[Rfam]
RNA sequence: ACUCGGGCACGAUCCCCGCAGUGAGUGCGGUGAACCGACCCGUAGUUCAACCCUGAGGGA
Numbered sequence: 001a002c003u004c005g006g007g008c009a010c011g012a013u014c015c016c017c018g019c020a021g022u023g024a025g026u027g028c029g030g031u032g033a034a035c036c037g038a039c040c041c042g043u044a045g046u047u048c049a050a051c052c053c054u055g056a057g058g059g060a
Stems, first nucleotide, its partner, number of pairs: 001046003004042004013033002016030004
Dot-bracket structure: (((((((.....((.((((.......)))).)).....)))).)))..............
A member of the RNA family "L31-Corynebacteriaceae ribosomal protein leader" from Corynebacterium spheniscorum, 60 nucleotides long. The match comes from Rfam's covariance-model search (68 bits). For this family Rfam cites "Discovery of 20 novel ribosomal leader candidates in bacteria and archaea" (Eckert and Weinberg, BMC Microbiol, 2020). Taxonomically the source falls in Corynebacterium (Bacteria, Actinomycetes, Mycobacteriales, Corynebacteriaceae). Clan: Ribosomal Protein L31 Leader clan. Pairs were carried over by alignment from the consensus structure, which is taken from published work. Rfam classes the family as a cis-regulatory leader.